[Rfam]
RNA sequence: CCCGCCACUAUACCUGUCCUGAACCCUGUGGCUGGUAUAUUCCAGUGGUGAGCUGAGAGGAAGCCCCAGUCAAGGAAGCAGUCCUCUUCUGGUUGUGGGGAGGCCUGUGCCGAAAGACUGGGAACAAGA
Numbered sequence: 001c002c003c004g005c006c007a008c009u010a011u012a013c014c015u016g017u018c019c020u021g022a023a024c025c026c027u028g029u030g031g032c033u034g035g036u037a038u039a040u041u042c043c044a045g046u047g048g049u050g051a052g053c054u055g056a057g058a059g060g061a062a063g064c065c066c067c068a069g070u071c072a073a074g075g076a077a078g079c080a081g082u083c084c085u086c087u088u089c090u091g092g093u094u095g096u097g098g099g100g101a102g103g104c105c106u107g108u109g110c111c112g113a114a115a116g117a118c119u120g121g122g123a124a125c126a127a128g129a
Base pairs, nucleotide, nucleotide: 005048006047007046008045009044018035019034021032024031025030064122065121066120068119070116074111075110079107080106081105083103084102087099088098089097
About this RNA
Shown here is a 129-nucleotide RNA from Cepphus grylle, a member of the family "Small nucleolar RNA SNORA65". Rfam classes the family as an H/ACA-box small nucleolar RNA. Rfam links the family to the GO terms RNA processing and nucleolus. Rfam describes the family as follows. U65 belongs to the H/ACA class of snoRNAs which are thought to guide the sites of modification of uridines to pseudouridines. The source organism's lineage runs through Eukaryota, Bilateria, Vertebrata, Coelurosauria and Cepphus.